[Rfam]
RNA sequence: AAGAAAAAUGCCAAACCUGUUGUGAGGCAGGGACGGAAAGCCACGGGUCUUAACUGUAAACAGAGACAGCCGGGUUGCCUUAA
Numbered sequence: 001a002a003g004a005a006a007a008a009u010g011c012c013a014a015a016c017c018u019g020u021u022g023u024g025a026g027g028c029a030g031g032g033a034c035g036g037a038a039a040g041c042c043a044c045g046g047g048u049c050u051u052a053a054c055u056g057u058a059a060a061c062a063g064a065g066a067c068a069g070c071c072g073g074g075u076u077g078c079c080u081u082a083a
Stems, first nucleotide, its partner, number of pairs: 003080001011036002016031006034069001039076004044072003047067005

This 83-nucleotide RNA sequence from Desulfonema ishimotonii belongs to the Rfam family "c-di-GMP-I-GGC riboswitch aptamer". A reference for the family is Weinberg et al. (2017), "Bioinformatic analysis of riboswitch structures uncovers variant classes with altered ligand specificity", Proc Natl Acad Sci U S A. It scores 64 bits against the family's covariance model.